The family of this 287-nucleotide RNA from Xenorhabdus szentirmaii is "Soft rot Enterobacteriaceae Rev 39 5'UTR". Rfam classes the family as a cis-regulatory element. Pairs were carried over by alignment from the consensus structure, which was predicted with RNAfold. From the family's description: From bacteria cultured under starvation conditions. Gene Ontology term of the family: cellular response to starvation. The literature on the family includes a 2016 paper in BMC Genomics by Kwenda et al., "Discovery and profiling of small RNAs responsive to stress conditions in the plant pathogen Pectobacterium atrosepticum".
[Rfam]
RNA sequence: AAUUAUUGUCAAUAAUCAUAGAAAGUGAUAACUAUUAAAUAUACGUCAAACAUACGAGUUAAAACGAACCAAAUUAUGAAUACUUUAGUCCUAGUGAUUAGCCUAAUUAUUAGCGUGGUGGUGAUUAUUCCACCGUGCGGGGCUGCACUUGGACGAAAGAAGGCUUAGAAAAAGAGAGCCAGACUUCAAAAAGACCCCCGCACCGAAAGGCGCGGGGGUUUUUUUUAGGGCAAUUUUUUAGUUUAGAGAAGAAAAACAAGCAUAACAAAACAUCACAACCAGCCGGU
Numbered sequence: 001a002a003u004u005a006u007u008g009u010c011a012a013u014a015a016u017c018a019u020a021g022a023a024a025g026u027g028a029u030a031a032c033u034a035u036u037a038a039a040u041a042u043a044c045g046u047c048a049a050a051c052a053u054a055c056g057a058g059u060u061a062a063a064a065c066g067a068a069c070c071a072a073a074u075u076a077u078g079a080a081u082a083c084u085u086u087a088g089u090c091c092u093a094g095u096g097a098u099u100a101g102c103c104u105a106a107u108u109a110u111u112a113g114c115g116u117g118g119u120g121g122u123g124a125u126u127a128u129u130c131c132a133c134c135g136u137g138c139g140g141g142g143c144u145g146c147a148c149u150u151g152g153a154c155g156a157a158a159g160a161a162g163g164c165u166u167a168g169a170a171a172a173a174g175a176g177a178g179c180c181a182g183a184c185u186u187c188a189a190a191a192a193g194a195c196c197c198c199c200g201c202a203c204c205g206a207a208a209g210g211c212g213c214g215g216g217g218g219u220u221u222u223u224u225u226u227a228g229g230g231c232a233a234u235u236u237u238u239u240a241g242u243u244u245a246g247a248g249a250a251g252a253a254a255a256a257c258a259a260g261c262a263u264a265a266c267a268a269a270a271c272a273u274c275a276c277a278a279c280c281a282g283c284c285g286g287u
Base pairs, nucleotide, nucleotide: 006031007030008029009028010027011026013023040071042068044066045065046064048059084247085246086245088243090241093238096235097234098233099232101231102230103229104228106226108115117134118133119132120131121130123129124128135154136153138151139150140149141148155187156186157185162180163179164178165177166176189224190223191222192221193220194219195218196217197216198215199214200213203210204209248274249273250263
Source information
A search with the family's covariance model found it, with a score of 105 bits.